The record is an 89-nucleotide sequence from Vigna angularis, which matches "MIR862_2 microRNA precursor family" in Rfam. The family has 3 seed sequences and 22 matches in Rfam 15.1.
RNA sequence: AUUUUUCGUGUACCCUCAAAGGCUUCCAGUAUUCAGUAAGCUAAGAUGCUUGAAUGAAUGCUGGAAGCUUUUGAAGGAAUUUGAAACCU
Numbered sequence: 001a002u003u004u005u006u007c008g009u010g011u012a013c014c015c016u017c018a019a020a021g022g023c024u025u026c027c028a029g030u031a032u033u034c035a036g037u038a039a040g041c042u043a044a045g046a047u048g049c050u051u052g053a054a055u056g057a058a059u060g061c062u063g064g065a066a067g068c069u070u071u072u073g074a075a076g077g078a079a080u081u082u083g084a085a086a087c088c089u
Base pairs, nucleotide, nucleotide: 006084007083008082010080011079013077014076016074017073018072019071020070021069022068023067025065026064027063028062029061030060031059032058033057034056